[Rfam]
RNA: Bacterial RNase P class A
Organism: Magnetospirillum fulvum
RNA sequence: CCAGACGGCUGGACGGCCGCUCUUCGGGCUUUGCCCGGAGGGAGGAAAGUCCGGGCUCCACGGAAACACGGUGCCGGAUAACGUCCGGCGGGGGCGACCCCAGGGAAAGUGCCACAGAAAGUAAACCGCCUGUCCCCCGAUCUUUCGGGCGUCAGGUAAGGGUGAAAGGGUGCGGUAAGAGCGCACCGCGCCCCCGGUAACGGGGGUGGCAGGGCAAACCCCACCGGGAGCAAGACCAAAUAGGGGCGGCACCCGUUCUUCCUCGGAAGGACGAAGCGCGUUUCCGCGCCGCCGCCCGGGUCGGUCGCGAGAGGCGUCCGGCAACGGGCGUCCCAGAGGAAUGGCCGUCCACCCCCGGCACCAUGGGAAACCAUGGGAUGGGGCGGACAGAACCCGGCUUACAGGCCGUCUGGCGCG
Numbered sequence: 001c002c003a004g005a006c007g008g009c010u011g012g013a014c015g016g017c018c019g020c021u022c023u024u025c026g027g028g029c030u031u032u033g034c035c036c037g038g039a040g041g042g043a044g045g046a047a048a049g050u051c052c053g054g055g056c057u058c059c060a061c062g063g064a065a066a067c068a069c070g071g072u073g074c075c076g077g078a079u080a081a082c083g084u085c086c087g088g089c090g091g092g093g094g095c096g097a098c099c100c101c102a103g104g105g106a107a108a109g110u111g112c113c114a115c116a117g118a119a120a121g122u123a124a125a126c127c128g129c130c131u132g133u134c135c136c137c138c139g140a141u142c143u144u145u146c147g148g149g150c151g152u153c154a155g156g157u158a159a160g161g162g163u164g165a166a167a168g169g170g171u172g173c174g175g176u177a178a179g180a181g182c183g184c185a186c187c188g189c190g191c192c193c194c195c196g197g198u199a200a201c202g203g204g205g206g207u208g209g210c211a212g213g214g215c216a217a218a219c220c221c222c223a224c225c226g227g228g229a230g231c232a233a234g235a236c237c238a239a240a241u242a243g244g245g246g247c248g249g250c251a252c253c254c255g256u257u258c259u260u261c262c263u264c265g266g267a268a269g270g271a272c273g274a275a276g277c278g279c280g281u282u283u284c285c286g287c288g289c290c291g292c293c294g295c296c297c298g299g300g301u302c303g304g305u306c307g308c309g310a311g312a313g314g315c316g317u318c319c320g321g322c323a324a325c326g327g328g329c330g331u332c333c334c335a336g337a338g339g340a341a342u343g344g345c346c347g348u349c350c351a352c353c354c355c356c357g358g359c360a361c362c363a364u365g366g367g368a369a370a371c372c373a374u375g376g377g378a379u380g381g382g383g384c385g386g387a388c389a390g391a392a393c394c395c396g397g398c399u400u401a402c403a404g405g406c407c408g409u410c411u412g413g414c415g416c417g
Stems, first nucleotide, its partner, number of pairs: 001413010011402001012349007020042009047400003051397005056230004065283002069226005074088005089103001090101004104221002109219002111215003126161002128157005134151001136149005169187006188210001189208008234306004244297006276289004313332008
Dot-bracket structure: ((((((((((((((((((.(((((((((.....)))))))))....[[[.[[[[[((((.....[[..((((((((((.....)))))(((((....)))).)((...(((((............(((((((.(.(((((....))))).).)))))..)).......((((((.......))))))(((((((((....)))))))).)..)))..)))))))))))))...((((......((((((..........................((((..]]..))))..)))))).....))))......((((((((....))))))))..........)))))))...........................................]]]]]]]].).))))))))))....